Small nucleolar RNA SNORA28: a 120-nucleotide sequence from Myotis brandtii.
[Rfam]
Nucleotides: 120
Stems, first nucleotide, its partner, number of pairs: 011042001012037004017032006060113002063110002066107001070106003076100003081094004
Number, partner (000 for none) and nucleotide at each position: 001000a002000a003000a004000g005000u006000a007000u008000u009000a010000g011042c012037u013036g014035u015034g016000g017032c018031a019030g020029a021028u022027g023000a024000c025000a026000c027022u028021g029020u030019u031018u032017g033000a034015c035014a036013c037012a038000a039000u040000u041000u042011g043000a044000g045000c046000u047000a048000g049000c050000u051000a052000u053000a054000g055000c056000a057000a058000c059000a060113a061112a062000a063110u064109c065000c066107a067000g068000c069000c070106u071105a072104u073000u074000c075000c076100g077099g078098u079000g080000u081094u082093c083092u084091u085000c086000u087000c088000u089000a090000u091084g092083a093082g094081a095000c096000a097000a098078g099077c100076c101000a102000u103000u104072a105071u106070g107066u108000a109064g110063a111000c112061u113060u114000a115000g116000a117000c118000a119000g120000u
Pairs were carried over by alignment from the consensus structure, which was predicted with RNAfold.
From the family's description: ACA28 is a member of the H/ACA class of snoRNA that guide the sites of modification of uridines to pseudouridines.
The match comes from Rfam's covariance-model search (82 bits).